[Rfam]
RNA sequence: AACACCUGGGGAUCCUGUUAAAAUGCAGAUUCUGAUUCAGGAGGUCUGGGAUGGUUUGGGAUUCUGCAUUUCGAACAAGUUCCCAGGUGAUGCUGU
Number, nucleotide and partner (000 for none) at each position: 001a000002a000003c089004a088005c087006c000007u000008g000009g083010g082011g081012a000013u000014c079015c000016u077017g076018u075019u074020a000021a071022a070023a069024u000025g067026c066027a065028g064029a063030u000031u061032c060033u059034g000035a000036u000037u000038c000039a000040g000041g000042a000043g000044g000045u000046c000047u000048g000049g000050g000051a000052u000053g000054g000055u000056u000057u000058g000059g033060g032061a031062u000063u029064c028065u027066g026067c025068a000069u023070u022071u021072c000073g000074a019075a018076c017077a016078a000079g014080u000081u011082c010083c009084c000085a000086g000087g005088u004089g003090a000091u000092g000093c000094u000095g000096u000
This 96-nucleotide sequence from Trichechus manatus belongs to the Rfam family "mir-544 microRNA precursor family".
NCBI's taxonomy places the organism under Eukaryota, Deuterostomia, Craniata, Sirenia, Trichechus manatus.
The family has 16 seed sequences and 10,750 matches in Rfam 15.1.
A search with the family's covariance model found it, with a score of 76 bits.